[Rfam]
RNA sequence: CUGAAAGCAUAAAUAAUUGUGCCUUUAUACAGUAAUGUAUAUCGAAAAAUCCUCUAAUUCAGGGAACACCUAAACAAACUAAGAUGUAGGCAAUCCUGAGCUAAGCUCUUAGUAAUAAGAGAAAGUGCAACGACUAUUCCGAUAGGAAGUAGGGUCAAGUGACUCGAAAUGGGGAUUACCCUUCUAGGGUAGUGAUAUAGUCUGAACAUAUAUGGAAACAUAUAG
Numbered sequence: 001c002u003g004a005a006a007g008c009a010u011a012a013a014u015a016a017u018u019g020u021g022c023c024u025u026u027a028u029a030c031a032g033u034a035a036u037g038u039a040u041a042u043c044g045a046a047a048a049a050u051c052c053u054c055u056a057a058u059u060c061a062g063g064g065a066a067c068a069c070c071u072a073a074a075c076a077a078a079c080u081a082a083g084a085u086g087u088a089g090g091c092a093a094u095c096c097u098g099a100g101c102u103a104a105g106c107u108c109u110u111a112g113u114a115a116u117a118a119g120a121g122a123a124a125g126u127g128c129a130a131c132g133a134c135u136a137u138u139c140c141g142a143u144a145g146g147a148a149g150u151a152g153g154g155u156c157a158a159g160u161g162a163c164u165c166g167a168a169a170u171g172g173g174g175a176u177u178a179c180c181c182u183u184c185u186a187g188g189g190u191a192g193u194g195a196u197a198u199a200g201u202c203u204g205a206a207c208a209u210a211u212a213u214g215g216a217a218a219c220a221u222a223u224a225g
Stems, first nucleotide, its partner, number of pairs: 005026003010021002013018001029038003048177005054171001059099006069090004100126002107118001130203001132202005179189004210223005
Shown here is a 225-nucleotide RNA from Twortvirus twort, a member of the family "Group I catalytic intron".
For this family Rfam cites "Self-splicing of group I introns" (Cech, Annu Rev Biochem, 1990).
It scores 97 bits against the family's covariance model.
The base pairs follow the family's consensus structure, which is taken from published work.
Rfam links the family to the GO term Group I intron splicing.